[Rfam]
RNA: Small nucleolar RNA SNORA8
Organism: Phyllostomus discolor
RNA sequence: CACACUGAGUAGUAUCUGCAUUUUAUAGUUUAUUCCUGUUGGGUAUUCAAAGGACAAUUGCAAUGGAAAUUCAGUAUCUGCUGUCAUUGGUUUUCUUAGCUUUGUGCUUGUUAAACCUUUUAUUACUACAGUAUAAACA
Numbered sequence: 001c002a003c004a005c006u007g008a009g010u011a012g013u014a015u016c017u018g019c020a021u022u023u024u025a026u027a028g029u030u031u032a033u034u035c036c037u038g039u040u041g042g043g044u045a046u047u048c049a050a051a052g053g054a055c056a057a058u059u060g061c062a063a064u065g066g067a068a069a070u071u072c073a074g075u076a077u078c079u080g081c082u083g084u085c086a087u088u089g090g091u092u093u094u095c096u097u098a099g100c101u102u103u104g105u106g107c108u109u110g111u112u113a114a115a116c117c118u119u120u121u122a123u124u125a126c127u128a129c130a131g132u133a134u135a136a137a138c139a
Stems, first nucleotide, its partner, number of pairs: 003060002006056002015053003018046001020044004025039004064128003068124003073118002080108001082106003